[Rfam]
RNA sequence: GAUUAAGGAGUUUCUCCUAAAACCCCCACAUCCAUGUGGCAACGGAAAAGUCAGCACAUCCUGAGAG
Dot-bracket structure: ..........(((.(((........((((......))))....))).)))....(.(.....).)..
The family of this 67-nucleotide RNA from Peribacillus cavernae is "Bacillaceae-1 RNA". The base pairs follow the family's consensus structure, which is taken from published work. The organism belongs to Peribacillus, within Bacteria. The match comes from Rfam's covariance-model search (39 bits).